A member of the RNA family "Small nucleolar RNA Z122" from Acer yangbiense, 84 nucleotides long.
The match comes from Rfam's covariance-model search (59 bits).
RNA sequence: GUUGGGAAAUGAUGCUAAGAUAAAAAUCGAUUAUCAGAGGCACCAGCAAUGCUGAUCAUAUUUGCACGUCAGUCUGAUCCCGGA
Numbered sequence: 001g002u003u004g005g006g007a008a009a010u011g012a013u014g015c016u017a018a019g020a021u022a023a024a025a026a027u028c029g030a031u032u033a034u035c036a037g038a039g040g041c042a043c044c045a046g047c048a049a050u051g052c053u054g055a056u057c058a059u060a061u062u063u064g065c066a067c068g069u070c071a072g073u074c075u076g077a078u079c080c081c082g083g084a
Base pairs, nucleotide, nucleotide: 002083003082004081005080006079007078

Record summary:
Gene Ontology terms of the family: nucleolus and RNA processing.